[Rfam]
RNA sequence: UCACAAAUUCAAGGCCACAGCAGAAGUACUCACAGCGUGGCCCUGUCAGAUUCCAAUGAAUCUUCAGAUUCUGUU
Dot-bracket structure: ............[[[[..(((((((((.........))]]]].....((((((....)))))).....)))))))